About this RNA: The family of this 139-nucleotide sequence from Cupriavidus necator is "Group II catalytic intron D1-D4-4".
RNA sequence: CAGUCGGUGAAAGUCCGACCGAGGCAAAAGACUCAGUCCUCGUAGCUAGGGAGGCGUCAUGGCGCGAAAGCAAGAUGACGGAGCCCUCCGACAGUAUGCUCAGAAAGGAGUGUAUGCAACGCACCAGGUUGCAACGUGC
Numbered sequence: 001c002a003g004u005c006g007g008u009g010a011a012a013g014u015c016c017g018a019c020c021g022a023g024g025c026a027a028a029a030g031a032c033u034c035a036g037u038c039c040u041c042g043u044a045g046c047u048a049g050g051g052a053g054g055c056g057u058c059a060u061g062g063c064g065c066g067a068a069a070g071c072a073a074g075a076u077g078a079c080g081g082a083g084c085c086c087u088c089c090g091a092c093a094g095u096a097u098g099c100u101c102a103g104a105a106a107g108g109a110g111u112g113u114a115u116g117c118a119a120c121g122c123a124c125c126a127g128g129u130u131g132c133a134a135c136g137u138g139c
Base pairs, nucleotide, nucleotide: 020042021041022040023039024038050089051088052087053086054085055080056079057078058077059076060075064071065070096113097112098111099110100109101108116132117131118130

Rfam's curators write: Group II introns are found in rRNA, tRNA and mRNA of organelles in fungi, plants and protists, and also in mRNA in bacteria. Rfam links the family to the GO term Group II intron splicing. Pairs were carried over by alignment from the consensus structure. On this family, see Bonen and Vogel, Trends Genet 2001: "The ins and outs of group II introns".